[Rfam]
RNA sequence: CGGGUGCCCUGGCUCAAGUUCUCAUUUCCAAUACAGUUUGAGAACCUUGUAUCGGAGAUAGGACUUGAUACCAGUUUGCCCG
Numbered sequence: 001c002g003g004g005u006g007c008c009c010u011g012g013c014u015c016a017a018g019u020u021c022u023c024a025u026u027u028c029c030a031a032u033a034c035a036g037u038u039u040g041a042g043a044a045c046c047u048u049g050u051a052u053c054g055g056a057g058a059u060a061g062g063a064c065u066u067g068a069u070a071c072c073a074g075u076u077u078g079c080c081c082g
Base pairs, nucleotide, nucleotide: 001082002081003080004079005078006077009074010073011072012071016066017065018064019063020062021061022060027056028055029054031052032051033050034049035048036047
RNA: mir-BART18 microRNA precursor family
Organism: Lymphocryptovirus macacinegamma4